RNA sequence: CGUGCGCCGUCGCCGAAUCCCGCACGCGCGGCCCCGCCAACAGCGAGGACGCGUCCAGGGAACCGGGGAACCACCAAUUGGGGUGAAUCGGAGUCAUACGGCGUGCCCGUAUGGAUCCGUAGGAGACCUUCCUGCUCCGAACCCGUCAGCUAACCCGGUAGGCGAGAAGGAAGGAAAG
Numbered sequence: 001c002g003u004g005c006g007c008c009g010u011c012g013c014c015g016a017a018u019c020c021c022g023c024a025c026g027c028g029c030g031g032c033c034c035c036g037c038c039a040a041c042a043g044c045g046a047g048g049a050c051g052c053g054u055c056c057a058g059g060g061a062a063c064c065g066g067g068g069a070a071c072c073a074c075c076a077a078u079u080g081g082g083g084u085g086a087a088u089c090g091g092a093g094u095c096a097u098a099c100g101g102c103g104u105g106c107c108c109g110u111a112u113g114g115a116u117c118c119g120u121a122g123g124a125g126a127c128c129u130u131c132c133u134g135c136u137c138c139g140a141a142c143c144c145g146u147c148a149g150c151u152a153a154c155c156c157g158g159u160a161g162g163c164g165a166g167a168a169g170g171a172a173g174g175a176a177a178g
Base pairs, nucleotide, nucleotide: 011164012163013162014161018061019060020059062159063158064157065156066155067154072080073079081144082143083142089119090118091117092116122138123137124136125135
This 178-nucleotide RNA from Streptomyces radiopugnans belongs to the Rfam family "c-di-AMP riboswitch aptamer (ydaO/yuaA leader)". Gene Ontology terms of the family: regulation of gene expression and cyclic-di-AMP binding. Taxonomically the source falls in Streptomyces (Bacteria, Bacillati, Actinomycetota, Kitasatosporales).